[Rfam]
RNA sequence: GCGAAGGGUCGCUAGGGUUCCGGCGCUUGUCCUUGCAAGGCAAUGCGUGCUGGUCCGAGAGCAACCGGCCUCAAUCACCCAGGGCGUCGAUCGGCAGAUCAGUGCCUGGACGGUGGUCAGGCUCCACGGCGGGACAAAAGCCCGGGAGAA
Numbered sequence: 001g002c003g004a005a006g007g008g009u010c011g012c013u014a015g016g017g018u019u020c021c022g023g024c025g026c027u028u029g030u031c032c033u034u035g036c037a038a039g040g041c042a043a044u045g046c047g048u049g050c051u052g053g054u055c056c057g058a059g060a061g062c063a064a065c066c067g068g069c070c071u072c073a074a075u076c077a078c079c080c081a082g083g084g085c086g087u088c089g090a091u092c093g094g095c096a097g098a099u100c101a102g103u104g105c106c107u108g109g110a111c112g113g114u115g116g117u118c119a120g121g122c123u124c125c126a127c128g129g130c131g132g133g134a135c136a137a138a139a140g141c142c143c144g145g146g147a148g149a150a
Base pairs, nucleotide, nucleotide: 007066008065009064011062012061015056016055020053021052022050023048024047025046026045028043067123068122069121070120071119125145127148131143132142133141
The record is a 150-nucleotide sequence from Sphaerotilus hippei, which matches "Guanidine-I riboswitch aptamer" in Rfam.
The match comes from Rfam's covariance-model search (71 bits).